[Rfam]
RNA sequence: UGAACAGAAAGAUGUAACCUUCGUAUAUCCCUGGGAAUAAGGCCCAGAAGUCUCUACCGGAUCACCGUAAAUGAUCUGACUAUGAAGGCAGACACUCCUAGU
Numbered sequence: 001u002g003a004a005c006a007g008a009a010a011g012a013u014g015u016a017a018c019c020u021u022c023g024u025a026u027a028u029c030c031c032u033g034g035g036a037a038u039a040a041g042g043c044c045c046a047g048a049a050g051u052c053u054c055u056a057c058c059g060g061a062u063c064a065c066c067g068u069a070a071a072u073g074a075u076c077u078g079a080c081u082a083u084g085a086a087g088g089c090a091g092a093c094a095c096u097c098c099u100a101g102u
Stems, first nucleotide, its partner, number of pairs: 018088008031047005058078007

This 102-nucleotide sequence from Guptibacillus hwajinpoensis belongs to the Rfam family "Purine riboswitch aptamer". Lineage of the source: Bacteria > Bacillota > Bacilli > Caryophanales > Guptibacillus. About the family: Riboswitches are metabolite binding domains within certain messenger RNAs that serve as precision sensors for their corresponding targets. Allosteric rearrangement of mRNA structure is mediated by ligand binding, and this results in modulation of gene expression. A class of riboswitches that selectively recognises guanine and becomes saturated at concentrations as low as 5 nM. In Bacillus subtilis, this mRNA motif is located on at least five separate transcriptional units that together encode 17 genes that are mostly involved in purine transport and purine nucleotide biosynthesis. It has also been shown that some members of this family are specific for adenine instead.